[Rfam]
Nucleotides: 074
Base pairs, nucleotide, nucleotide: 008031009030010029011028012027013026014025048068049067050066051065052064053063054062055061
Number, partner (000 for none) and nucleotide at each position: 001000a002000a003000c004000c005000g006000c007000c008031g009030c010029a011028u012027g013026g014025g015000c016000c017000g018000g019000u020000u021000a022000a023000g024000c025014c026013c027012c028011a029010u030009g031008c032000a033000c034000c035000u036000c037000c038000c039000u040000g041000u042000u043000g044000g045000a046000c047000u048068g049067a050066c051065c052064c053063g054062g055061c056000c057000u058000u059000g060000u061055g062054c063053c064052g065051g066050g067049u068048c069000u070000u071000u072000u073000u074000u